A member of the RNA family "Hepatitis C virus stem-loop I" from Orthohepacivirus hominis, 47 nucleotides long. Gene Ontology term of the family: viral RNA genome replication. A reference for the family is Pirakitikulr et al. (2016), "The Coding Region of the HCV Genome Contains a Network of Regulatory RNA Structures", Mol Cell.
[Rfam]
RNA sequence: CAAUAGGGUGAGUAGUUGCCUCAGGAAGCUUGGGGUACCCCCUUUGA
Numbered sequence: 001c002a003a004u005a006g007g008g009u010g011a012g013u014a015g016u017u018g019c020c021u022c023a024g025g026a027a028g029c030u031u032g033g034g035g036u037a038c039c040c041c042c043u044u045u046g047a
Base pairs, nucleotide, nucleotide: 006042007041008040010039018036019035020034021033022032023031024030025029